Notes:
The family of this 61-nucleotide sequence from Tolypothrix tenuis is "Nitrogen stress-induced RNA 1". The base pairs follow the family's consensus structure. The organism belongs to Tolypothrix tenuis, within Bacteria.

RNA sequence: UGGUAGAUGCACCCUGAUAACUAACUCCCCUGGUAGGCUAAUGCUUACCAGGGUUUUUUUU
Numbered sequence: 001u002g003g004u005a006g007a008u009g010c011a012c013c014c015u016g017a018u019a020a021c022u023a024a025c026u027c028c029c030c031u032g033g034u035a036g037g038c039u040a041a042u043g044c045u046u047a048c049c050a051g052g053g054u055u056u057u058u059u060u061u
Stems, first nucleotide, its partner, number of pairs: 002013003028053010